Background:
Shown here is a 109-nucleotide sequence from Neobacillus thermocopriae, a member of the family "TPP riboswitch aptamer (THI element)". A search with the family's covariance model found it, with a score of 92 bits. Gene Ontology term of the family: thiamine pyrophosphate binding.
RNA sequence: UAAAUCCGCUAGAGGUGCCUUUAUAAAAGGCUGAGAUCGAAGUGUUACUUCGGGACUCUAUGAACCUGAUCUGGUUAAUACCAGCGUAGGGAAGUGGAGAAUGGGAGCA
Numbered sequence: 001u002a003a004a005u006c007c008g009c010u011a012g013a014g015g016u017g018c019c020u021u022u023a024u025a026a027a028a029g030g031c032u033g034a035g036a037u038c039g040a041a042g043u044g045u046u047a048c049u050u051c052g053g054g055a056c057u058c059u060a061u062g063a064a065c066c067u068g069a070u071c072u073g074g075u076u077a078a079u080a081c082c083a084g085c086g087u088a089g090g091g092a093a094g095u096g097g098a099g100a101a102u103g104g105g106a107g108c109a
Base pairs, nucleotide, nucleotide: 006097007096008095009094010093011059012058013057014056016053017031018030019029020028021027038052039051040050041049042048065090066089067088068087071084072083073082074081